[Rfam]
RNA sequence: GUUCGAAUUGUGCGGCGAGUAAUUCAGAAAGGCAUAGCCGCGGGUCUGGUCGAUGAUGUGGAACAGCGGGUUCCAGUCGAACAUCUGCAGCAUGAAGCCGGGCAGCGUAUUGGCCACGAACAUCUUGCCCGAGGUGAACAUGUUCAUGCGCCG
Numbered sequence: 001g002u003u004c005g006a007a008u009u010g011u012g013c014g015g016c017g018a019g020u021a022a023u024u025c026a027g028a029a030a031g032g033c034a035u036a037g038c039c040g041c042g043g044g045u046c047u048g049g050u051c052g053a054u055g056a057u058g059u060g061g062a063a064c065a066g067c068g069g070g071u072u073c074c075a076g077u078c079g080a081a082c083a084u085c086u087g088c089a090g091c092a093u094g095a096a097g098c099c100g101g102g103c104a105g106c107g108u109a110u111u112g113g114c115c116a117c118g119a120a121c122a123u124c125u126u127g128c129c130c131g132a133g134g135u136g137a138a139c140a141u142g143u144u145c146a147u148g149c150g151c152c153g
Stems, first nucleotide, its partner, number of pairs: 003034001008030002011027001014024002037057001039055002041052003064153001066151003070082004089144006098134002101130002103127003107123002110119003